RNA sequence: CGUGCCGGGGUGGACAGGCCCUUGGGUCAACUAACCCUAAUGGCGGCUGCGCCCCUCACCCCCGCCCGCUGUUUUACUCGCUGACUUUCAGCGGGCAAAGGGAGUGGCCCAAGGAAAGGGGGGGGGGUGAAAAAGAGGUCCGUUCUCAAAAAACGUCAGCGAGGGGUCCACACCCCGGCCCACCCUGGGGUCCCUGUCCCUCCUCCGUAACCGGGGGUACUCCCACCGUCGCCCUCGUGGAGGCCGCGGUCGGCAGGCCCAGCGCCACUGCCGCCGCGAAGAGUUCGUCUCUGUCAGCCUCGGCGGCGGCCGAAACGGGAGGGCCGGCCCGCCCACCCUGGGCAGCCGGGGGACCCCAGCAGAACAAAACGGGUGCGGCGCCGCCGGGCGCUGAGCAGCCGCGGCUCCCUCAGACGUGGGAUGCGUGGCCGGCGCCGCCCCGACACCC
Numbered sequence: 001c002g003u004g005c006c007g008g009g010g011u012g013g014a015c016a017g018g019c020c021c022u023u024g025g026g027u028c029a030a031c032u033a034a035c036c037c038u039a040a041u042g043g044c045g046g047c048u049g050c051g052c053c054c055c056u057c058a059c060c061c062c063c064g065c066c067c068g069c070u071g072u073u074u075u076a077c078u079c080g081c082u083g084a085c086u087u088u089c090a091g092c093g094g095g096c097a098a099a100g101g102g103a104g105u106g107g108c109c110c111a112a113g114g115a116a117a118g119g120g121g122g123g124g125g126g127g128u129g130a131a132a133a134a135g136a137g138g139u140c141c142g143u144u145c146u147c148a149a150a151a152a153a154c155g156u157c158a159g160c161g162a163g164g165g166g167u168c169c170a171c172a173c174c175c176c177g178g179c180c181c182a183c184c185c186u187g188g189g190g191u192c193c194c195u196g197u198c199c200c201u202c203c204u205c206c207g208u209a210a211c212c213g214g215g216g217g218u219a220c221u222c223c224c225a226c227c228g229u230c231g232c233c234c235u236c237g238u239g240g241a242g243g244c245c246g247c248g249g250u251c252g253g254c255a256g257g258c259c260c261a262g263c264g265c266c267a268c269u270g271c272c273g274c275c276g277c278g279a280a281g282a283g284u285u286c287g288u289c290u291c292u293g294u295c296a297g298c299c300u301c302g303g304c305g306g307c308g309g310c311c312g313a314a315a316c317g318g319g320a321g322g323g324c325c326g327g328c329c330c331g332c333c334c335a336c337c338c339u340g341g342g343c344a345g346c347c348g349g350g351g352g353a354c355c356c357c358a359g360c361a362g363a364a365c366a367a368a369a370c371g372g373g374u375g376c377g378g379c380g381c382c383g384c385c386g387g388g389c390g391c392u393g394a395g396c397a398g399c400c401g402c403g404g405c406u407c408c409c410u411c412a413g414a415c416g417u418g419g420g421a422u423g424c425g426u427g428g429c430c431g432g433c434g435c436c437g438c439c440c441c442g443a444c445a446c447c448c
Stems, first nucleotide, its partner, number of pairs: 004179009017168005051105002054102002064096008080160006086153003185359007216325003220321005226309007236302001245278005251273004256266003280292004373440001375438008399428005406421004

Description
Shown here is a 448-nucleotide RNA sequence from Platysteira castanea, a member of the family "Vertebrate telomerase RNA". From the family's description: Telomerase is a ribonucleoprotein reverse transcriptase that synthesises telomeric DNA. Telomerase RNAs differ greatly in sequence and structure between vertebrates, ciliates and yeasts, but they share a 5' pseudoknot structure close to the template sequence. Vertebrate telomerase RNAs have a 3' H/ACA snoRNA-like domain. By type it is a non-coding RNA gene. For this family Rfam cites "Analysis of the structure of human telomerase RNA in vivo" (Antal et al., Nucleic Acids Res, 2002).